[Rfam]
RNA sequence: GCGGAUGAAGGCAGCAGGAGAGACCCGGUUUUUCGGGCGCCGAAGGAGUAAGCCUUUAAAGUGUUGCUUGGCUUUAAAGGUGAAACUCUCAGGCAAAAGGACUGUUGCCGGACGAAACUCUGGAGAGUCCCUUAAAGGGCACCCACGGGGAGUUUAAUCUCUCAGGUCAAAGGACAGAGGC
Numbered sequence: 001g002c003g004g005a006u007g008a009a010g011g012c013a014g015c016a017g018g019a020g021a022g023a024c025c026c027g028g029u030u031u032u033u034c035g036g037g038c039g040c041c042g043a044a045g046g047a048g049u050a051a052g053c054c055u056u057u058a059a060a061g062u063g064u065u066g067c068u069u070g071g072c073u074u075u076a077a078a079g080g081u082g083a084a085a086c087u088c089u090c091a092g093g094c095a096a097a098a099g100g101a102c103u104g105u106u107g108c109c110g111g112a113c114g115a116a117a118c119u120c121u122g123g124a125g126a127g128u129c130c131c132u133u134a135a136a137g138g139g140c141a142c143c144c145a146c147g148g149g150g151a152g153u154u155u156a157a158u159c160u161c162u163c164a165g166g167u168c169a170a171a172g173g174a175c176a177g178a179g180g181c
Stems, first nucleotide, its partner, number of pairs: 002114002010109008022038001024037004039094003045090001046088003052081011118179005127140001129139004141167003147163001150160001
A member of the RNA family "glycine-GGAnGA riboswitch aptamer" from Carboxydothermus hydrogenoformans, 181 nucleotides long. For this family Rfam cites "Bioinformatic analysis of riboswitch structures uncovers variant classes with altered ligand specificity" (Weinberg et al., Proc Natl Acad Sci U S A, 2017). About the family: glycine-GGAnGA riboswitch is a variant of glycine riboswitch that have in common a U69A change. This riboswitch is associate with genes that encode either saccharopine dehydrogenase or amino acid transporters and other genes with not predicted function. The family is grouped with related families in Rfam's "Glycine riboswitch clan". Lineage of the source: Bacteria > Bacillota > Thermoanaerobacteraceae > Carboxydothermus > Carboxydothermus hydrogenoformans.